Shown here is a 523-nucleotide sequence from Actinomadura darangshiensis, a member of the family "Saccharopolyspora sRNA 350". Its family is annotated with regulation of secondary metabolite biosynthetic process in the Gene Ontology. On this family, see Liu et al., PLoS One 2013: "Prediction and characterization of small non-coding RNAs related to secondary metabolites in Saccharopolyspora erythraea".

RNA sequence: UUGACCGUGUGGUCCCACUCCGCGGGCCCCUCGCCCUCCUCCGUGCCGAGGAGGGCCUGCUCGCCGAAGAAGUCGCCGUUCGCGAGCGUCCCGAGGACGGCGUCGGCGCCGUACUCCCCGGCACCGAUCUUGCUGAGCUUGCCGUGCGCGACGAGGACGACGCGGUCGACGGGACGUCCGCGCUCCACGACGACGUCGCCGGGCUCGUACUCCUGCUGGGUGAAGCGCCCGGCGAUGGCGUCCAGGGCGAGGUCGUCGUCGAAGCCGCGCAGCGGGGCCAGCUCGCCCAGCUCGCGCGGGAUGACCCGCACGUCGGCGCCGGUGGUCACGAACGUGACCCGGCCGUCGCCGAGCGUGUAGGUGAGCCGCCGGUUGACCCGGUAGGCGCCGCCGGACGCCUCCACCCACGGCAGCAGCUUCAGCAGCCACCGCGACGUGAUGCCCUGCAUCUGCGGGACGGACUUGGUCGUGGUCGCCAGGUUCCGCGCAGCCGCGGUACCGAGGCUCUGUUGCUGCUGCUCUU
Numbered sequence: 001u002u003g004a005c006c007g008u009g010u011g012g013u014c015c016c017a018c019u020c021c022g023c024g025g026g027c028c029c030c031u032c033g034c035c036c037u038c039c040u041c042c043g044u045g046c047c048g049a050g051g052a053g054g055g056c057c058u059g060c061u062c063g064c065c066g067a068a069g070a071a072g073u074c075g076c077c078g079u080u081c082g083c084g085a086g087c088g089u090c091c092c093g094a095g096g097a098c099g100g101c102g103u104c105g106g107c108g109c110c111g112u113a114c115u116c117c118c119c120g121g122c123a124c125c126g127a128u129c130u131u132g133c134u135g136a137g138c139u140u141g142c143c144g145u146g147c148g149c150g151a152c153g154a155g156g157a158c159g160a161c162g163c164g165g166u167c168g169a170c171g172g173g174a175c176g177u178c179c180g181c182g183c184u185c186c187a188c189g190a191c192g193a194c195g196u197c198g199c200c201g202g203g204c205u206c207g208u209a210c211u212c213c214u215g216c217u218g219g220g221u222g223a224a225g226c227g228c229c230c231g232g233c234g235a236u237g238g239c240g241u242c243c244a245g246g247g248c249g250a251g252g253u254c255g256u257c258g259u260c261g262a263a264g265c266c267g268c269g270c271a272g273c274g275g276g277g278c279c280a281g282c283u284c285g286c287c288c289a290g291c292u293c294g295c296g297c298g299g300g301a302u303g304a305c306c307c308g309c310a311c312g313u314c315g316g317c318g319c320c321g322g323u324g325g326u327c328a329c330g331a332a333c334g335u336g337a338c339c340c341g342g343c344c345g346u347c348g349c350c351g352a353g354c355g356u357g358u359a360g361g362u363g364a365g366c367c368g369c370c371g372g373u374u375g376a377c378c379c380g381g382u383a384g385g386c387g388c389c390g391c392c393g394g395a396c397g398c399c400u401c402c403a404c405c406c407a408c409g410g411c412a413g414c415a416g417c418u419u420c421a422g423c424a425g426c427c428a429c430c431g432c433g434a435c436g437u438g439a440u441g442c443c444c445u446g447c448a449u450c451u452g453c454g455g456g457a458c459g460g461a462c463u464u465g466g467u468c469g470u471g472g473u474c475g476c477c478a479g480g481u482u483c484c485g486c487g488c489a490g491c492c493g494c495g496g497u498a499c500c501g502a503g504g505c506u507c508u509g510u511u512g513c514u515g516c517u518g519c520u521c522u523u
Base pairs, nucleotide, nucleotide: 007404008403009402011400012399014397022343023342025340026339031337032336033335034334037331038330051327052326055323056322057321062318063317064316065315066314067313069248073244075242077240078239079238080126082124093116094115095114097112098111099110100109101108134235138231141228142227145224146221147220149218150217153214155212159210165206168204170202172200173199177193178192181189182188249311251309255305256304257303258302259301260300266296267295268294269293271292272291273290275286277284344357345356346355366394367393368392370390371389372388377385378384406446407445409443410442411441412440414438415437418433420431422430452491453490455488458485459484460483461482462480463479464478465477466476467475495520496519497518499515501513502511503510